[Rfam]
RNA sequence: CCCCUGGUCUCCACAGCCGGGAAUACUGAAGAGGCACACCCUCAUUGCCCCAUGUGCGGCGGGUUCAAGCCCUCCAUGCCAAGGCAGACAACGACCGAUACCGGCGCGCAUAGCGCCGUCGUCGGACCACGUCGCGAACGUAUCCGAGCUUG
Numbered sequence: 001c002c003c004c005u006g007g008u009c010u011c012c013a014c015a016g017c018c019g020g021g022a023a024u025a026c027u028g029a030a031g032a033g034g035c036a037c038a039c040c041c042u043c044a045u046u047g048c049c050c051c052a053u054g055u056g057c058g059g060c061g062g063g064u065u066c067a068a069g070c071c072c073u074c075c076a077u078g079c080c081a082a083g084g085c086a087g088a089c090a091a092c093g094a095c096c097g098a099u100a101c102c103g104g105c106g107c108g109c110a111u112a113g114c115g116c117c118g119u120c121g122u123c124g125g126a127c128c129a130c131g132u133c134g135c136g137a138a139c140g141u142a143u144c145c146g147a148g149c150u151u152g
Stems, first nucleotide, its partner, number of pairs: 003021006033049004056132003083095001103117005